Rfam assigns this 140-nucleotide RNA sequence from Simiduia aestuariiviva to the family "SAM-I/IV (S-adenosyl methionine) riboswitch aptamer". The match comes from Rfam's covariance-model search (48 bits). A reference for the family is Weinberg et al. (2008), "The aptamer core of SAM-IV riboswitches mimics the ligand-binding site of SAM-I riboswitches", RNA.

RNA sequence: GCGCCACAUCAAGAGAGUGGCUGACGCCAACGCCAACCUGCCGAACCUGGCAAGGUGGUUCCCCCUAAAGCUGUUAGGCAUUGGGGAUGCGGUCGCCAGAGUAUCCCGCCGGAUACACUGCGACAACGAAGAGGAUGCAA
Numbered sequence: 001g002c003g004c005c006a007c008a009u010c011a012a013g014a015g016a017g018u019g020g021c022u023g024a025c026g027c028c029a030a031c032g033c034c035a036a037c038c039u040g041c042c043g044a045a046c047c048u049g050g051c052a053a054g055g056u057g058g059u060u061c062c063c064c065c066u067a068a069a070g071c072u073g074u075u076a077g078g079c080a081u082u083g084g085g086g087a088u089g090c091g092g093u094c095g096c097c098a099g100a101g102u103a104u105c106c107c108g109c110c111g112g113a114u115a116c117a118c119u120g121c122g123a124c125a126a127c128g129a130a131g132a133g134g135a136u137g138c139a140a
Base pairs, nucleotide, nucleotide: 007089008088009087010086015031018029019028020027021026032059033058034057037055038054039053040051041050042049044136046134047133048132092124093123094122095121